TPP riboswitch aptamer (THI element): an 89-nucleotide RNA from Bisgaardia hudsonensis.

[Rfam]
Nucleotides: 089
Base pairs, nucleotide, nucleotide: 006077007076008075009074010073011040012039013038014037016034017026018025019024045070046069047068048067052063053062054061
Number, partner (000 for none) and nucleotide at each position: 001000g002000a003000u004000a005000u006077u007076u008075a009074g010073u011040c012039g013038g014037g015000g016034u017026g018025c019024c020000u021000u022000u023000g024019g025018g026017c027000u028000g029000a030000g031000a032000u033000g034016a035000u036000a037014c038013c039012c040011g041000u042000g043000a044000a045070c046069c047068u048067g049000a050000a051000a052063c053062a054061g055000u056000u057000a058000a059000u060000a061054c062053u063052g064000g065000c066000g067048u068047a069046g070045g071000a072000a073010a074009c075008u076007a077006a078000u079000u080000u081000a082000u083000g084000u085000a086000u087000c088000g089000u
Background:
The match comes from Rfam's covariance-model search (68 bits).